About this RNA: Shown here is a 98-nucleotide RNA from Aphis gossypii, a member of the family "mir-1 microRNA precursor family". Pairs were carried over by alignment from the consensus structure, which was predicted with RNAalifold.
[Rfam]
RNA sequence: ACCAGAGUUCCGUACUUCUUGUAUGUUCGCAUAGUGUGCGCGAGCCGUUUGGCCGAAUUUAACGACGUAUGGAAUGUAAAGAAGUAUGGAGCGACGGG
Numbered sequence: 001a002c003c004a005g006a007g008u009u010c011c012g013u014a015c016u017u018c019u020u021g022u023a024u025g026u027u028c029g030c031a032u033a034g035u036g037u038g039c040g041c042g043a044g045c046c047g048u049u050u051g052g053c054c055g056a057a058u059u060u061a062a063c064g065a066c067g068u069a070u071g072g073a074a075u076g077u078a079a080a081g082a083a084g085u086a087u088g089g090a091g092c093g094a095c096g097g098g
Stems, first nucleotide, its partner, number of pairs: 007092014022078005030071004
The source organism's lineage runs through Eukaryota, Eumetazoa, Pancrustacea, Aphidini and Aphis. About the family: This family represents the microRNA (miRNA) mir-1 family. miRNAs are transcribed as ~70nt precursors (modelled here) and subsequently processed by the Dicer enzyme to give a ~22nt product.